[Rfam]
Rfam assigns this 90-nucleotide RNA sequence from Polaromonas naphthalenivorans to the family "Burkholderia RNA 7 (anti-hemB)". The sequence is in the family's curated seed alignment. Rfam's curators write: This RNA motif was identified by computational search in b-proteobacteria Burkholderia. Co-purified with Hfq, expression confirmed by Northern blot.
RNA sequence: UCCCGCUUUUCCUCCCUGAGCGGGGCCUUUGCGUGUGACAGCAAAAAGGCAUUUAUCCCGGCUGGCCAGCAGGUCGCCGGGAUUUUUUUU
Numbered sequence: 001u002c003c004c005g006c007u008u009u010u011c012c013u014c015c016c017u018g019a020g021c022g023g024g025g026c027c028u029u030u031g032c033g034u035g036u037g038a039c040a041g042c043a044a045a046a047a048g049g050c051a052u053u054u055a056u057c058c059c060g061g062c063u064g065g066c067c068a069g070c071a072g073g074u075c076g077c078c079g080g081g082a083u084u085u086u087u088u089u090u
Stems, first nucleotide, its partner, number of pairs: 002024006025050004029044003056082007